[Rfam]
RNA sequence: AGGAACUACUAGGGGUGCAACAUGCUGAGAUAAGGAUAAUCCUUUAUCCCUUUGAACCUGAUCUGGGUAAUACCAGCGAAGGGAAGUAGUGAGGACGAGUC
Numbered sequence: 001a002g003g004a005a006c007u008a009c010u011a012g013g014g015g016u017g018c019a020a021c022a023u024g025c026u027g028a029g030a031u032a033a034g035g036a037u038a039a040u041c042c043u044u045u046a047u048c049c050c051u052u053u054g055a056a057c058c059u060g061a062u063c064u065g066g067g068u069a070a071u072a073c074c075a076g077c078g079a080a081g082g083g084a085a086g087u088a089g090u091g092a093g094g095a096c097g098a099g100u101c
Base pairs, nucleotide, nucleotide: 006089007088008087009086010085011051012050013049014048017025018024019023032044033043034042035041036040057082058081059080063076064075065074066073
The record is a 101-nucleotide RNA from Virgibacillus necropolis, which matches "TPP riboswitch aptamer (THI element)" in Rfam. The source organism's lineage runs through Bacteria, Bacillota, Bacilli, Caryophanales and Virgibacillus. The base pairs follow the family's consensus structure, which is taken from published work.